[Rfam]
Nucleotides: 197
Stems, first nucleotide, its partner, number of pairs: 002057008012049002016044005022037005068133006078124005083117004089112001092109002095107004137190004151178003155174007
Number, partner (000 for none) and nucleotide at each position: 001000c002057c003056c004055a005054g006053c007052a008051c009050u010000c011000a012049g013048u014000c015000a016044g017043c018042u019041g020040a021000c022037c023036a024035g025034g026033c027000g028000u029000u030000g031000g032000u033026g034025u035024c036023u037022g038000g039000c040020u041019c042018a043017g044016u045000g046000u047000u048013a049012c050009a051008g052007u053006g054005c055004u056003g057002g058000u059000a060000g061000a062000g063000a064000a065000a066000g067000u068133c069132u070131c071130u072129g073128u074000u075000c076000u077000u078124g079123g080122u081121c082120u083117c084116a085115g086114c087000u088000c089112g090000g091000u092109g093108g094000g095107u096106u097105c098104u099000g100000u101000u102000u103000u104098a105097g106096a107095g108093c109092c110000u111000g112089c113000u114086g115085c116084u117083g118000c119000u120082g121081g122080g123079c124078u125000g126000c127000u128073g129072c130071a131070g132069a133068g134000c135000a136000c137190g138189g139188c140187c141000a142000a143000a144000u145000g146000a147000g148000a149000g150000u151178g152177g153176c154000c155174u156173g157172u158171u159170c160169u161168g162000c163000u164000u165000c166000a167000c168161c169160g170159g171158g172157a173156c174155a175000g176153g177152c178151c179000u180000a181000g182000u183000a184000u185000a186000g187140g188139g189138c190137c191000a192000c193000a194000c195000a196000u197000g